[Rfam]
RNA sequence: UAGGUGGAUUUGAGGACUUAAACUUGCAUAUUUAGAGUAUUUUGAAGACUUCUACAUGCAUAUUUGGAAGAUUUGAAGACUUCGACU
Number, nucleotide and partner (000 for none) at each position: 001u085002a000003g083004g082005u000006g080007g000008a000009u077010u076011u075012g074013a073014g072015g000016a000017c000018u068019u067020a000021a065022a000023c000024u000025u060026g059027c058028a057029u000030a000031u000032u054033u000034a000035g051036a050037g049038u000039a000040u000041u000042u000043u000044g000045a000046a000047g000048a000049c037050u036051u035052c000053u000054a032055c000056a000057u028058g027059c026060a025061u000062a000063u000064u000065u021066g000067g019068a018069a000070g000071a000072u014073u013074u012075g011076a010077a009078g000079a000080c006081u000082u004083c003084g000085a001086c000087u000
RNA: MIR8024 microRNA precursor family
Organism: Solanum tuberosum